[Rfam]
Description:
This 91-nucleotide sequence from Pediococcus stilesii belongs to the Rfam family "RNA anti-toxin A". The literature on the family includes a 2010 paper in Nucleic Acids Res by Fozo et al., "Abundance of type I toxin-antitoxin systems in bacteria: searches for new candidates and discovery of novel families". It scores 51 bits against the family's covariance model. Taxonomically the source falls in Pediococcus (Bacteria, Bacillota, Bacilli, Lactobacillaceae). Rfam classes the family as an antitoxin RNA. The family has 16 seed sequences and 190 matches in Rfam 15.1.
RNA sequence: UAAUGAGGGCAUAGAAAAGGAGUUAUGAGCUGGUACUCAUAACUCCUGUGUAGAACCGUUAAAGACGGUGGCUGCGUUUUAGAACUUAAAA
Numbered sequence: 001u002a003a004u005g006a007g008g009g010c011a012u013a014g015a016a017a018a019g020g021a022g023u024u025a026u027g028a029g030c031u032g033g034u035a036c037u038c039a040u041a042a043c044u045c046c047u048g049u050g051u052a053g054a055a056c057c058g059u060u061a062a063a064g065a066c067g068g069u070g071g072c073u074g075c076g077u078u079u080u081a082g083a084a085c086u087u088a089a090a091a
Stems, first nucleotide, its partner, number of pairs: 026039004055069006